This 111-nucleotide RNA from Treponema denticola belongs to the Rfam family "TD-1 RNA". It is annotated as a cis-regulatory element. Its Rfam clan is "TD (Treponema denticola) motifs". Taxonomically the source falls in Treponema denticola (Bacteria, Pseudomonadati, Spirochaetota, Treponematales).
RNA sequence: GUUAACCGUCGAGUUUGCUGACCGCAAACAUCGCAUAUUACAAUGUGCGCGUUACGCGCACCAAUGCAACAGUUUUCGAGAAUUGAUAUUCUCUCAACUGUUCCAUUUUAA
Numbered sequence: 001g002u003u004a005a006c007c008g009u010c011g012a013g014u015u016u017g018c019u020g021a022c023c024g025c026a027a028a029c030a031u032c033g034c035a036u037a038u039u040a041c042a043a044u045g046u047g048c049g050c051g052u053u054a055c056g057c058g059c060a061c062c063a064a065u066g067c068a069a070c071a072g073u074u075u076u077c078g079a080g081a082a083u084u085g086a087u088a089u090u091c092u093c094u095c096a097a098c099u100g101u102u103c104c105a106u107u108u109u110a111a
Base pairs, nucleotide, nucleotide: 011032012031013029014028015027016026017025018024045061046060047059048058049057050056051055065105066104068102069101070100071099072098073097074096078093079092080091081090082089083088